[Rfam]
RNA sequence: ACUAACGGUACUUGGCACACACUCUGCAUAGGCAUUACCACAAUUUAAAUAAAGCGCGUUCUUCAACGAAGAAGACUGCACUUCCCGAUAGAACGGGACUUGGACAAAGGCGUCCUCGCUAGGUAACUAGCGGGACGCC
Numbered sequence: 001a002c003u004a005a006c007g008g009u010a011c012u013u014g015g016c017a018c019a020c021a022c023u024c025u026g027c028a029u030a031g032g033c034a035u036u037a038c039c040a041c042a043a044u045u046u047a048a049a050u051a052a053a054g055c056g057c058g059u060u061c062u063u064c065a066a067c068g069a070a071g072a073a074g075a076c077u078g079c080a081c082u083u084c085c086c087g088a089u090a091g092a093a094c095g096g097g098a099c100u101u102g103g104a105c106a107a108a109g110g111c112g113u114c115c116u117c118g119c120u121a122g123g124u125a126a127c128u129a130g131c132g133g134g135a136c137g138c139c
Base pairs, nucleotide, nucleotide: 012107013106014105015027016026017025054081056079057078058077060075061074063072064071083098084097085096086095087094109139110138111137112136113135114134115133117132118131119130120129121128122127

The family of this 139-nucleotide sequence from Pseudomonas sp. M30-35 is "Pseudomonas sRNA P11". Pairs were carried over by alignment from the consensus structure, which was predicted with RNAalifold. Taxonomically the source falls in Pseudomonas (Bacteria, Pseudomonadati, Pseudomonadales, Pseudomonadaceae). It is annotated as a non-coding RNA gene.